[Rfam]
Rfam assigns this 101-nucleotide RNA sequence from Erwinia sp. Leaf53 to the family "TPP riboswitch aptamer (THI element)". Pairs were carried over by alignment from the consensus structure, which is taken from published work. A search with the family's covariance model found it, with a score of 77 bits.
RNA sequence: GUCUUCUUGUCGGAGUGCCCCUCGGGGCUGAGACCGUUAAUUCGGGAUCCGCGGAACCUGAUCAGGUUAAUACCUGCGAAGGGAACAAGAGUAAAACAGCU
Numbered sequence: 001g002u003c004u005u006c007u008u009g010u011c012g013g014a015g016u017g018c019c020c021c022u023c024g025g026g027g028c029u030g031a032g033a034c035c036g037u038u039a040a041u042u043c044g045g046g047a048u049c050c051g052c053g054g055a056a057c058c059u060g061a062u063c064a065g066g067u068u069a070a071u072a073c074c075u076g077c078g079a080a081g082g083g084a085a086c087a088a089g090a091g092u093a094a095a096a097c098a099g100c101u
Stems, first nucleotide, its partner, number of pairs: 006089005011051004016045001017028004035044002057082003063076004